[Rfam]
RNA sequence: AAGGAUGCUUUUUCUGCUAAAACCACCCACGUCCUGUGGGCAAUGCAGAAGUCAGUACAUCCUCUACA
Numbered sequence: 001a002a003g004g005a006u007g008c009u010u011u012u013u014c015u016g017c018u019a020a021a022a023c024c025a026c027c028c029a030c031g032u033c034c035u036g037u038g039g040g041c042a043a044u045g046c047a048g049a050a051g052u053c054a055g056u057a058c059a060u061c062c063u064c065u066a067c068a
Base pairs, nucleotide, nucleotide: 011051012050013049014048015047016046017045026040027039028038029037030036055067056066057065
Shown here is a 68-nucleotide RNA sequence from Bacillus sp. J14TS2, a member of the family "Bacillaceae-1 RNA". Taxonomically the source falls in Bacillus (Bacteria, Bacillati, Bacillota, Bacillaceae). The match comes from Rfam's covariance-model search (40 bits). The base pairs follow the family's consensus structure, which is taken from published work. By type it is a small RNA.